The family of this 52-nucleotide sequence from Aurantimonas coralicida is "serC leader". This family is a putative regulatory RNA structure that is found upstream of the serC-serA operon in some alpha-proteobacteria. The final stem of the structure overlaps the ribosome binding site of the serC reading frame. By type it is a cis-regulatory leader. For this family Rfam cites "Evidence for a second class of S-adenosylmethionine riboswitches and other regulatory RNA motifs in alpha-proteobacteria" (Corbino et al., Genome Biol, 2005). Rfam links the family to the GO term regulation of gene expression.
Nucleotides: 052
Stems, first nucleotide, its partner, number of pairs: 011028006032047006
Number, partner (000 for none) and nucleotide at each position: 001000u002000c003000g004000c005000g006000g007000g008000a009000c010000a011028c012027g013026c014025c015024u016023c017000c018000c019000c020000a021000a022000c023016g024015a025014g026013g027012c028011g029000c030000u031000u032047c033046u034045a035044u036043c037042u038000g039000u040000g041000a042037g043036g044035g045034u046033a047032g048000c049000u050000u051000a052000g